[Rfam]
RNA sequence: AUAAUGAUACAUUCGCCCAGCCACAGUCCGAGCGUGAAGCGGUCCUGACGGACCGUGAGCCGUCGCAGGCAAUGGGGGCGAUCUGCGAAACCCGCAGGGGGUGAGAGUCCCAUGC
Numbered sequence: 001a002u003a004a005u006g007a008u009a010c011a012u013u014c015g016c017c018c019a020g021c022c023a024c025a026g027u028c029c030g031a032g033c034g035u036g037a038a039g040c041g042g043u044c045c046u047g048a049c050g051g052a053c054c055g056u057g058a059g060c061c062g063u064c065g066c067a068g069g070c071a072a073u074g075g076g077g078g079c080g081a082u083c084u085g086c087g088a089a090a091c092c093c094g095c096a097g098g099g100g101g102u103g104a105g106a107g108u109c110c111c112a113u114g115c
Stems, first nucleotide, its partner, number of pairs: 012112001013081006082098006099111003
RNA: pemK RNA
Organism: Firmicutes bacterium CAG:129